[Rfam]
RNA sequence: UAAGCACCUAAACCCAAAACUGCUGUUUCUCAUAGCAGUAGUUUAAACAGGUGCUGACAACAAGUGAACCUUGUCGCCUUUGGGGGCUGUGGCUGUGCCCCUCAAAGUGAAUUAGGAGGUUCUACAUUC
Numbered sequence: 001u002a003a004g005c006a007c008c009u010a011a012a013c014c015c016a017a018a019a020c021u022g023c024u025g026u027u028u029c030u031c032a033u034a035g036c037a038g039u040a041g042u043u044u045a046a047a048c049a050g051g052u053g054c055u056g057a058c059a060a061c062a063a064g065u066g067a068a069c070c071u072u073g074u075c076g077c078c079u080u081u082g083g084g085g086g087c088u089g090u091g092g093c094u095g096u097g098c099c100c101c102u103c104a105a106a107g108u109g110a111a112u113u114a115g116g117a118g119g120u121u122c123u124a125c126a127u128u129c
Base pairs, nucleotide, nucleotide: 003055004054005053006052007051008050009049018043019042020041021040022039023038024037025036026035027034066122067121068120069119070118071117072116078107079106080105081104082103083101084100085099086098087097
Record summary:
Small nucleolar RNA SNORA68: a 129-nucleotide sequence from Molossus molossus. U68 is a member of the H/ACA class of small nucleolar RNAs (snoRNAs) which act as guides in the the modification of uridines to pseudouridines. Rfam classes the family as an H/ACA-box small nucleolar RNA. The family's consensus secondary structure was predicted with PFOLD.